[Rfam]
RNA sequence: GAAUGGCUUUGGGGGUGUCCUGCGCGGACUGAGAUAAUACCCUUCGAACCUGACACAGUUGAGACUGUCGUAGGGAAAAGCUGGAGAGAACGC
Numbered sequence: 001g002a003a004u005g006g007c008u009u010u011g012g013g014g015g016u017g018u019c020c021u022g023c024g025c026g027g028a029c030u031g032a033g034a035u036a037a038u039a040c041c042c043u044u045c046g047a048a049c050c051u052g053a054c055a056c057a058g059u060u061g062a063g064a065c066u067g068u069c070g071u072a073g074g075g076a077a078a079a080g081c082u083g084g085a086g087a088g089a090a091c092g093c
Stems, first nucleotide, its partner, number of pairs: 006081005011043004016037001017029004049074004055068004
The family of this 93-nucleotide RNA sequence from Larkinella knui is "TPP riboswitch aptamer (THI element)". Rfam's curators write: Vitamin B(1) in its active form thiamin pyrophosphate (TPP) is an essential coenzyme that is synthesised by coupling of pyrimidine and thiazole moieties in bacteria. A search with the family's covariance model found it, with a score of 65 bits. The source organism's lineage runs through Bacteria, Bacteroidota, Cytophagia, Cytophagales and Larkinella. Pairs were carried over by alignment from the consensus structure, which is taken from published work.